[Rfam]
RNA sequence: AGACAUUCCGAGGGGAGCAUCGAACGAUGCUGAGAUGGCGGUGAGCCGGACCCUUGAACCUGAUCCGGGUCAUGCCGGCGUAGGAACGGAAAACGGCGUCGCG
Numbered sequence: 001a002g003a004c005a006u007u008c009c010g011a012g013g014g015g016a017g018c019a020u021c022g023a024a025c026g027a028u029g030c031u032g033a034g035a036u037g038g039c040g041g042u043g044a045g046c047c048g049g050a051c052c053c054u055u056g057a058a059c060c061u062g063a064u065c066c067g068g069g070u071c072a073u074g075c076c077g078g079c080g081u082a083g084g085a086a087c088g089g090a091a092a093a094c095g096g097c098g099u100c101g102c103g
Base pairs, nucleotide, nucleotide: 006091007090008089009088010087011054012053013052014051017030018029019028020027021026037047038046039045059084060083061082062081065078066077067076068075
Notes: The family of this 103-nucleotide RNA sequence from Rhizobium deserti is "TPP riboswitch aptamer (THI element)". About the family: Vitamin B(1) in its active form thiamin pyrophosphate (TPP) is an essential coenzyme that is synthesised by coupling of pyrimidine and thiazole moieties in bacteria. NCBI's taxonomy places the organism under Bacteria, Pseudomonadati, Hyphomicrobiales, Rhizobiaceae, Rhizobium. The base pairs follow the family's consensus structure, which is taken from published work. A search with the family's covariance model found it, with a score of 74 bits.